[Rfam]
This 88-nucleotide RNA sequence from Krasilnikoviella flava belongs to the Rfam family "ZMP/ZTP riboswitch aptamer (pfl RNA motif)".
RNA sequence: CGCGAGGGUCGCGACUGGCGUACAGGUGGAUCACCACCGGGGAGCGACGCGCUGUGCUGACGACGGGUCGUUCGCCUGGGCCCGGUCG
Number, nucleotide and partner (000 for none) at each position: 001c000002g000003c000004g052005a000006g050007g000008g048009u047010c046011g045012c044013g000014a000015c041016u040017g076018g075019c074020g073021u000022a000023c000024a000025g000026g037027u036028g035029g034030a000031u000032c000033a000034c029035c028036a027037c026038c000039g000040g016041g015042g000043a000044g012045c011046g010047a009048c008049g000050c006051g000052c004053u000054g000055u000056g000057c000058u000059g000060a000061c000062g000063a000064c000065g083066g082067g081068u080069c079070g000071u000072u000073c020074g019075c018076c017077u000078g000079g069080g068081c067082c066083c065084g000085g000086u000087c000088g000